[Rfam]
Annotation
A member of the RNA family "Eukaryotic large subunit ribosomal RNA" from Trypanosoma brucei, 491 nucleotides of a longer RNA.
RNA sequence: CAGACCUGAGUGUGGCAGGACCACCCGCUAAACUUAAGCAUAUUACUCAGCGGAGGAAAAGAAAACAACCGUGAUUCUCUCAGUCAGCGGCGAGCGAAGAGGGAUUCAACUCGUUGCCGAAUCGGGUCUUACAUGACCUCGAACUGUGGCACCAUUUUUGUGGCCGUUCUUAUAGGGCUGGUGCAGGCGUGGCGGAAUUCAAUUGCAAAGCAAACCCGUUGCUGAACACAUUUACAACCCUUCAUGUGAGUAUUGAGCCAAAGAAGGUGUCAGCCCAUUACAUUCCUUAGCCACGGAGCCUACGCGCCUCCUCAUGUUCGGUCCAAGAGAGUAGCACUGUUUGGGAAUGCAGUGUCAAGCCGGCAGGUAUUUGUCUGCCAAGGUUAAAUAUAGAGUAGGAAGACCGAUAGCGAACAAGUAGCGUGAGCGAAAGUUUGAAAAGUACUUUGGAAAGAGAGUGACAUAGAACCUGAAAUCGUGACAACGACAAU
Numbered sequence: 001c002a003g004a005c006c007u008g009a010g011u012g013u014g015g016c017a018g019g020a021c022c023a024c025c026c027g028c029u030a031a032a033c034u035u036a037a038g039c040a041u042a043u044u045a046c047u048c049a050g051c052g053g054a055g056g057a058a059a060a061g062a063a064a065a066c067a068a069c070c071g072u073g074a075u076u077c078u079c080u081c082a083g084u085c086a087g088c089g090g091c092g093a094g095c096g097a098a099g100a101g102g103g104a105u106u107c108a109a110c111u112c113g114u115u116g117c118c119g120a121a122u123c124g125g126g127u128c129u130u131a132c133a134u135g136a137c138c139u140c141g142a143a144c145u146g147u148g149g150c151a152c153c154a155u156u157u158u159u160g161u162g163g164c165c166g167u168u169c170u171u172a173u174a175g176g177g178c179u180g181g182u183g184c185a186g187g188c189g190u191g192g193c194g195g196a197a198u199u200c201a202a203u204u205g206c207a208a209a210g211c212a213a214a215c216c217c218g219u220u221g222c223u224g225a226a227c228a229c230a231u232u233u234a235c236a237a238c239c240c241u242u243c244a245u246g247u248g249a250g251u252a253u254u255g256a257g258c259c260a261a262a263g264a265a266g267g268u269g270u271c272a273g274c275c276c277a278u279u280a281c282a283u284u285c286c287u288u289a290g291c292c293a294c295g296g297a298g299c300c301u302a303c304g305c306g307c308c309u310c311c312u313c314a315u316g317u318u319c320g321g322u323c324c325a326a327g328a329g330a331g332u333a334g335c336a337c338u339g340u341u342u343g344g345g346a347a348u349g350c351a352g353u354g355u356c357a358a359g360c361c362g363g364c365a366g367g368u369a370u371u372u373g374u375c376u377g378c379c380a381a382g383g384u385u386a387a388a389u390a391u392a393g394a395g396u397a398g399g400a401a402g403a404c405c406g407a408u409a410g411c412g413a414a415c416a417a418g419u420a421g422c423g424u425g426a427g428c429g430a431a432a433g434u435u436u437g438a439a440a441a442g443u444a445c446u447u448u449g450g451a452a453a454g455a456g457a458g459u460g461a462c463a464u465a466g467a468a469c470c471u472g473a474a475a476u477c478g479u480g481a482c483a484a485c486g487a488c489a490a491u
Base pairs, nucleotide, nucleotide: 024055025053026052027051028050029049035042036041065072066071076104077103078102079101080100087095088094108385109384110383111382115151116150117149118148119147121145122142123141124140125139126138161325162324163322164321165320166319169316171314180308181307182306183305184304185301186300188295189294190293191292192291193290198256200255201254202253203252259263266276267275334355335354336353337352338351339350340349362379363378364377365376366375421428422427445456446455447454448453
It scores 1995 bits against the family's covariance model. The organism belongs to Trypanosoma brucei brucei, within Eukaryota. The family has 88 seed sequences and 107,465 matches in Rfam 15.1.